[Rfam]
A member of the RNA family "U11 spliceosomal RNA" from Clupea harengus, 136 nucleotides long. A search with the family's covariance model found it, with a score of 114 bits. The organism belongs to Clupea, within Eukaryota. By type it is a spliceosomal small nuclear RNA. The base pairs follow the family's consensus structure, which is taken from published work.

RNA sequence: AAAAAGGGUAUCUGCCAUGACUGGCACAGGGAGGAAAGGGACACUCUGACCUCCUUGCGGAAUCGAUAUCAAGAGAUUUCGGAUGCAGAAUUUUUGUCACUCGGGGCUGCUGAUGAUCGUUCAUCUCGGCGCCCCA
Numbered sequence: 001a002a003a004a005a006g007g008g009u010a011u012c013u014g015c016c017a018u019g020a021c022u023g024g025c026a027c028a029g030g031g032a033g034g035a036a037a038g039g040g041a042c043a044c045u046c047u048g049a050c051c052u053c054c055u056u057g058c059g060g061a062a063u064c065g066a067u068a069u070c071a072a073g074a075g076a077u078u079u080c081g082g083a084u085g086c087a088g089a090a091u092u093u094u095u096g097u098c099a100c101u102c103g104g105g106g107c108u109g110c111u112g113a114u115g116a117u118c119g120u121u122c123a124u125c126u127c128g129g130c131g132c133c134c135c136a
Base pairs, nucleotide, nucleotide: 008086009085010084011083012082013026014025015024016023017022027057028056029055030054031053032052033051034050035047037045038044058081059080060079061078062077063076064075104134105133106132107131109130110129111128112127113126115125116124117123